[Rfam]
Nucleotides: 197
Base pairs, nucleotide, nucleotide: 040169041168043166086124087123088122089121093119094118096116098114099113100112125152126151128149129148130147131146132145133144134142176197177196178195179194180193181192182191
Number, partner (000 for none) and nucleotide at each position: 001000u002000a003000a004000c005000a006000a007000g008000g009000c010000c011000a012000c013000c014000g015000g016000u017000a018000u019000c020000g021000c022000c023000a024000a025000u026000c027000c028000a029000u030000u031000u032000a033000a034000g035000a036000a037000a038000a039000a040169g041168c042000g043166g044000c045000c046000u047000g048000u049000g050000g051000c052000u053000g054000g055000a056000c057000g058000u059000g060000u061000g062000c063000c064000g065000a066000u067000a068000c069000c070000c071000g072000g073000c074000a075000a076000u077000a078000c079000u080000c081000a082000a083000g084000g085000u086124a087123c088122u089121g090000a091000c092000g093119u094118g095000c096116g097000g098114c099113a100112c101000a102000c103000c104000u105000c106000c107000c108000c109000c110000g111000c112100g113099u114098g115000c116096c117000c118094c119093g120000c121089c122088a123087g124086u125152c126151g127000g128149g129148g130147g131146u132145a133144c134142c135000u136000u137000g138000g139000a140000u141000c142134g143000g144133g145132u146131a147130c148129c149128u150000g151126c152125g153000u154000u155000u156000u157000u158000a159000c160000u161000c162000u163000u164000a165000a166043u167000g168041g169040u170000c171000u172000u173000g174000a175000c176197c177196c178195g179194g180193c181192u182191c183000c184000g185000c186000c187000c188000c189000c190000a191182g192181a193180g194179c195178c196177g197176g